[Rfam]
A member of the RNA family "Bacterial antisense RNA HPnc0260" from Candidatus Palibaumannia cicadellinicola, 128 nucleotides long.
The organism belongs to Candidatus Palibaumannia cicadellinicola, within Bacteria.
RNA sequence: AUAAAAAUACUUUUUAUAUAUAGAUACUAAUGAAAUUAGUCAUUUAAUUACUUUAAUCUUAUCCUAGAUUAGGUAGAGAUAUCUACAAUUGGUACGCCCGAGUGGAUUUGAACCACCGACCCCUACCA
Numbered sequence: 001a002u003a004a005a006a007a008u009a010c011u012u013u014u015u016a017u018a019u020a021u022a023g024a025u026a027c028u029a030a031u032g033a034a035a036u037u038a039g040u041c042a043u044u045u046a047a048u049u050a051c052u053u054u055a056a057u058c059u060u061a062u063c064c065u066a067g068a069u070u071a072g073g074u075a076g077a078g079a080u081a082u083c084u085a086c087a088a089u090u091g092g093u094a095c096g097c098c099c100g101a102g103u104g105g106a107u108u109u110g111a112a113c114c115a116c117c118g119a120c121c122c123c124u125a126c127c128a
Stems, first nucleotide, its partner, number of pairs: 021046003027039004063073003090125003099118002102116004